[Rfam]
RNA sequence: GCAACCUGAAGCUGGCGGCCGAGUACCCCAGCGUGUUCCGCUCGCUGCUGGGGAUUUCGUGGAUGUGGUUCUUUGGCGCGGUCUUCCUGUCGCAGUUCCCUGCGUUCGCCAAGGAGGUGCUG
Numbered sequence: 001g002c003a004a005c006c007u008g009a010a011g012c013u014g015g016c017g018g019c020c021g022a023g024u025a026c027c028c029c030a031g032c033g034u035g036u037u038c039c040g041c042u043c044g045c046u047g048c049u050g051g052g053g054a055u056u057u058c059g060u061g062g063a064u065g066u067g068g069u070u071c072u073u074u075g076g077c078g079c080g081g082u083c084u085u086c087c088u089g090u091c092g093c094a095g096u097u098c099c100c101u102g103c104g105u106u107c108g109c110c111a112a113g114g115a116g117g118u119g120c121u122g
Stems, first nucleotide, its partner, number of pairs: 010049003014045001017042003021038006051121002054118002057115002060112001062110001063105003067099002071095002074092005080087002
This 122-nucleotide RNA sequence from Aquabacterium sp. NJ1 belongs to the Rfam family "Burkholderia RNA 11".
It is one of the family's seed sequences.
Rfam classes the family as a small RNA.
Taxonomically the source falls in Aquabacterium (Bacteria, Pseudomonadati, Burkholderiales, Sphaerotilaceae).
The family's consensus secondary structure was predicted with RNAfold.
Rfam describes the family as follows. Co-purified with Hfq, expression confirmed by Northern blot. Predicted target marZ. Overlaps coding sequence.
On this family, see Ramos et al., Genomics 2013: "Experimental identification of small non-coding regulatory RNAs in the opportunistic human pathogen Burkholderia cenocepacia J2315".